[Rfam]
The family of this 56-nucleotide RNA from Panagrellus redivivus is "mir-7957 microRNA precursor family". The family's consensus secondary structure was predicted with RNAalifold. Taxonomically the source falls in Panagrellus (Eukaryota, Metazoa, Nematoda, Chromadorea). It is one of the family's seed sequences.

RNA sequence: UUUGUCCUUGGUUUUAUUGCUGUUUUUUGUUAUCUGUAAUUUGCCGAGGACGAAAU
Numbered sequence: 001u002u003u004g005u006c007c008u009u010g011g012u013u014u015u016a017u018u019g020c021u022g023u024u025u026u027u028u029g030u031u032a033u034c035u036g037u038a039a040u041u042u043g044c045c046g047a048g049g050a051c052g053a054a055a056u
Base pairs, nucleotide, nucleotide: 001054002053003052004051005050006049007048008047009046010045011044012043017039018038019037020036